Notes:
A member of the RNA family "c-di-AMP riboswitch aptamer (ydaO/yuaA leader)" from Acetivibrio straminisolvens, 130 nucleotides long. A search with the family's covariance model found it, with a score of 106 bits. The source organism's lineage runs through Bacteria, Bacillati, Bacillota, Acetivibrio and Acetivibrio straminisolvens. About the family: This family represents a conserved RNA structure found upstream of the ydaO and yuaA genes in Bacillus subtilis and related genes in other bacteria.

[Rfam]
RNA sequence: UAUUUAUAAGCGCUGAAUCAUUUUUGAGCGGGGGAACCACUUUUGGGGUGAAUCUUAGCUAUUGCUAAGUAGGGUUAACUCUUUCGAUCCAAACCCGUCAGCUAACCUCGUAGGCGUUGAUAGAGGAGUA
Numbered sequence: 001u002a003u004u005u006a007u008a009a010g011c012g013c014u015g016a017a018u019c020a021u022u023u024u025u026g027a028g029c030g031g032g033g034g035a036a037c038c039a040c041u042u043u044u045g046g047g048g049u050g051a052a053u054c055u056u057a058g059c060u061a062u063u064g065c066u067a068a069g070u071a072g073g074g075u076u077a078a079c080u081c082u083u084u085c086g087a088u089c090c091a092a093a094c095c096c097g098u099c100a101g102c103u104a105a106c107c108u109c110g111u112a113g114g115c116g117u118u119g120a121u122a123g124a125g126g127a128g129u130a
Stems, first nucleotide, its partner, number of pairs: 011116004018027003028111006038045002046096003054069004072090004